[Rfam]
RNA sequence: GCCGGUCCUCGGUAGUGGCCACAGGGGGUGCCGGAAUGAACAUCCCCUGGGCUUCGAUCGAUGACCGGC
Numbered sequence: 001g002c003c004g005g006u007c008c009u010c011g012g013u014a015g016u017g018g019c020c021a022c023a024g025g026g027g028g029u030g031c032c033g034g035a036a037u038g039a040a041c042a043u044c045c046c047c048u049g050g051g052c053u054u055c056g057a058u059c060g061a062u063g064a065c066c067g068g069c
Base pairs, nucleotide, nucleotide: 001069002068003067004066005065006064007063009061010060011059012058013057017053018052019051020050022049023048024047025046026045027044028043029042030041
The family of this 69-nucleotide sequence from Actinopolyspora mzabensis is "Actino-pnp RNA". It is annotated as a cis-regulatory element.